[Rfam]
RNA: U7 small nuclear RNA
Nucleotides: 062
Stems, first nucleotide, its partner, number of pairs: 034059011
Number, partner (000 for none) and nucleotide at each position: 001000a002000g003000g004000u005000g006000u007000u008000a009000c010000a011000g012000c013000u014000c015000u016000u017000u018000u019000a020000g021000a022000a023000u024000u025000u026000g027000u028000u029000u030000a031000a032000u033000a034059g035058g036057u037056u038055u039054u040053c041052c042051a043050g044049u045000c046000u047000u048000u049044g050043c051042u052041g053040g054039a055038a056037g057036a058035c059034c060000c061000c062000c